Source information
Mammalian CPEB3 ribozyme: a 73-nucleotide RNA sequence from Crocodylus porosus. Taxonomically the source falls in Crocodylus (Eukaryota, Eumetazoa, Archelosauria, Crocodylia).
RNA sequence: GGUCACAUCCAUGGGUAGCAGAAGCAUUCACAGUGCAGCCCUGUCAGAUUCUAAUAAUUCUGUGAAUUCUGCU
Numbered sequence: 001g002g003u004c005a006c007a008u009c010c011a012u013g014g015g016u017a018g019c020a021g022a023a024g025c026a027u028u029c030a031c032a033g034u035g036c037a038g039c040c041c042u043g044u045c046a047g048a049u050u051c052u053a054a055u056a057a058u059u060c061u062g063u064g065a066a067u068u069c070u071g072c073u
Stems, first nucleotide, its partner, number of pairs: 013041003017073007024036003045062004050057001

Its family is annotated with RNA nuclease activity in the Gene Ontology.